[Rfam]
A member of the RNA family "T-box leader" from Alteribacillus persepolensis, 210 nucleotides long. Rfam 15.1 lists 19,395 matches to the family in 1,923 species. The match comes from Rfam's covariance-model search (98 bits). About the family: Uncharged tRNA acts as the effector for transcription antitermination of genes in the T-box leader family. T-boxes are found upstream of many aminoacyl-tRNA synthetase genes and some amino acid biosynthetic genes usually in Gram-positive bacteria. The anticodon of a specific tRNA base pairs to a specifier sequence within the T-box motif, and the NCCA acceptor tail of the tRNA base pairs to a conserved bulge in the T-box antiterminator hairpin.
RNA sequence: GUAAACACGCUGAUGGGAAAAGUACGUUGCAGCCCUCUGUACAGAGACCGUUUUACGUGGCUGAAAUGAAACGGCAGAGAAGAGCAGCCGAAAGCUGACCCGGAGUGCAGUUUAAAAGCUGCCGUGAACCUGCGUUAAUGGCUUGAAGGUGGCAGAUGCAUGAUUGUAUUUGCAACCAGGGUGGUACCGCGAACAGACUUCGUCCCUGAA
Numbered sequence: 001g002u003a004a005a006c007a008c009g010c011u012g013a014u015g016g017g018a019a020a021a022g023u024a025c026g027u028u029g030c031a032g033c034c035c036u037c038u039g040u041a042c043a044g045a046g047a048c049c050g051u052u053u054u055a056c057g058u059g060g061c062u063g064a065a066a067u068g069a070a071a072c073g074g075c076a077g078a079g080a081a082g083a084g085c086a087g088c089c090g091a092a093a094g095c096u097g098a099c100c101c102g103g104a105g106u107g108c109a110g111u112u113u114a115a116a117a118g119c120u121g122c123c124g125u126g127a128a129c130c131u132g133c134g135u136u137a138a139u140g141g142c143u144u145g146a147a148g149g150u151g152g153c154a155g156a157u158g159c160a161u162g163a164u165u166g167u168a169u170u171u172g173c174a175a176c177c178a179g180g181g182u183g184g185u186a187c188c189g190c191g192a193a194c195a196g197a198c199u200u201c202g203u204c205c206c207u208g209a210a
Base pairs, nucleotide, nucleotide: 007106008105015101016100017099026088027087028086029085030084037077038076039075048074049073050072051071052070053069054068055067108121109120110119111118112117123134124133125132152173153172154171155170156169157168158167178207179206180205181204189203190202191201192200193199